RNA sequence: AAAUGAGCAGUAACCAACACUCUUGAUAGAACAAGAAAUUGGUUAUUGUUCAUUUAUUU
Numbered sequence: 001a002a003a004u005g006a007g008c009a010g011u012a013a014c015c016a017a018c019a020c021u022c023u024u025g026a027u028a029g030a031a032c033a034a035g036a037a038a039u040u041g042g043u044u045a046u047u048g049u050u051c052a053u054u055u056a057u058u059u
Stems, first nucleotide, its partner, number of pairs: 001055014021036005